A member of the RNA family "Archaeal large subunit ribosomal RNA" from Methanohalobium evestigatum, 250 nucleotides of a longer RNA.
The family's consensus secondary structure is taken from published work.
It is one of the family's seed sequences.
[Rfam]
RNA sequence: UGAGGUCUGAGGGUAAGCUGCUUUUAGUACGAGAGGAACAGAGCAGCGGUGCCACUGGUCGAUCGGUUGUCCGACAGGGCAUUGCCGAGCAGCUACGCACCAAGGAAUAAGAGCUGAAUGCAUCUAAGCUCGAAAUCCGGCUCAAAACGAGACCUCAGUAAGGAUGCCGGUAGAAGACCGGAUGAUAGAGUCGGGAUGUAAGCACCAAGGCAACGAAGUGUUAAGUCCGCGGCAACUAAGUUUCCGUGCC
Numbered sequence: 001u002g003a004g005g006u007c008u009g010a011g012g013g014u015a016a017g018c019u020g021c022u023u024u025u026a027g028u029a030c031g032a033g034a035g036g037a038a039c040a041g042a043g044c045a046g047c048g049g050u051g052c053c054a055c056u057g058g059u060c061g062a063u064c065g066g067u068u069g070u071c072c073g074a075c076a077g078g079g080c081a082u083u084g085c086c087g088a089g090c091a092g093c094u095a096c097g098c099a100c101c102a103a104g105g106a107a108u109a110a111g112a113g114c115u116g117a118a119u120g121c122a123u124c125u126a127a128g129c130u131c132g133a134a135a136u137c138c139g140g141c142u143c144a145a146a147a148c149g150a151g152a153c154c155u156c157a158g159u160a161a162g163g164a165u166g167c168c169g170g171u172a173g174a175a176g177a178c179c180g181g182a183u184g185a186u187a188g189a190g191u192c193g194g195g196a197u198g199u200a201a202g203c204a205c206c207a208a209g210g211c212a213a214c215g216a217a218g219u220g221u222u223a224a225g226u227c228c229g230c231g232g233c234a235a236c237u238a239a240g241u242u243u244c245c246g247u248g249c250c
Stems, first nucleotide, its partner, number of pairs: 001157008011143004017047008048101005056095003063088005068081005104138003111131005162245003167181004186238003190233004194228003202221004209214001